[Rfam]
RNA sequence: GACCGUGUGCCCGAGAGGCUCAGGGGCUCGACUGCAACUCGAGUUACACCGGUUCGAAUCCGGUCACGGUCU
Number, nucleotide and partner (000 for none) at each position: 001g071002a070003c069004c068005g067006u066007g065008u000009g000010c025011c024012c023013g000014a000015g000016a000017g000018g000019c000020u000021c000022a000023g012024g011025g010026g000027c043028u042029c041030g040031a039032c000033u000034g000035c000036a000037a000038c000039u031040c030041g029042a028043g027044u000045u000046a000047c000048a064049c063050c062051g061052g060053u000054u000055c000056g000057a000058a000059u000060c052061c051062g050063g049064u048065c007066a006067c005068g004069g003070u002071c001072u000
Shown here is a 72-nucleotide RNA from Streptomyces sp. SirexAA-E, a member of the family "tRNA".
It scores 57 bits against the family's covariance model.